[Rfam]
Nucleotides: 275
Stems, first nucleotide, its partner, number of pairs: 003273008013228006021063007036050005068260002071258004083095004096111006113199003119195006129187003140183004158168004230245004235240001
Number, partner (000 for none) and nucleotide at each position: 001000u002000u003273c004272g005271u006270g007269c008268u009267g010266a011000a012000g013228g014227c015226c016225u017224g018223u019000u020000u021063c022062c023061u024060a025059g026058g027057c028000u029000a030000c031000a032000u033000a034000c035000g036050g037049a038048g039047g040046a041000c042000u043000a044000g045000u046040u047039c048038c049037u050036u051000g052000u053000u054000u055000g056000c057027g058026c059025c060024u061023a062022g063021g064000g065000g066000a067000a068260a069259g070000u071258c072257c073256c074255c075000g076000g077000a078000c079000c080000g081000u082000g083095g084094g085093c086092a087000g088000a089000g090000a091000g092086u093085g094084c095083c096111a097110c098109g099108u100107g101106c102000c103000c104000g105000u106101g107100c108099a109098c110097g111096u112000a113199g114198a115197c116000u117000u118000c119195c120194c121193c122192u123191g124190c125000u126000u127000c128000u129187c130186a131185c132000g133000a134000c135000u136000a137000a138000a139000c140183c141182c142181g143180c144000c145000a146000a147000g148000a149000a150000g151000c152000g153000a154000u155000c156000c157000u158168a159167c160166c161165c162000u163000g164000g165161g166160g167159g168158u169000g170000g171000g172000g173000a174000a175000g176000c177000c178000g179000a180143g181142c182141g183140g184000c185131g186130u187129g188000u189000u190124g191123c192122g193121g194120g195119g196000u197115g198114u199113c200000a201000u202000c203000c204000g205000u206000c207000a208000g209000c210000u211000u212000c213000u214000a215000a216000u217000a218000g219000u220000u221000a222000c223018g224017c225016a226015g227014g228013c229000a230245g231244u232243g233242c234000c235240u236000c237000c238000a239000u240235g241000c242233g243232c244231a245230c246000c247000a248000a249000c250000c251000u252000c253000a254000c255074g256073g257072g258071g259069c260068u261000c262000a263000u264000u265000c266010u267009c268008a269007g270006c271005a272004c273003g274000u275000c

This 275-nucleotide sequence belongs to the Rfam family "RNase MRP". Clan: RNaseP clan. From the family's description: RNase MRP is an enzymatically active ribonucleoprotein with two distinct roles in eukaryotes. In mitochondria it plays a direct role in the initiation of mitochondrial DNA replication. In the nucleus it is involved in precursor rRNA processing, where it cleaves the internal transcribed spacer 1 between 18S and 5.8S rRNAs. Despite distinct functions, RNase MRP has been shown to be evolutionarily related to RNase P. Like eukaryotic RNase P, RNase MRP is not catalytically active without associated protein subunits. Gene Ontology terms of the family: rRNA processing, ribonuclease MRP complex and ribonuclease MRP activity. Pairs were carried over by alignment from the consensus structure, which is taken from published work.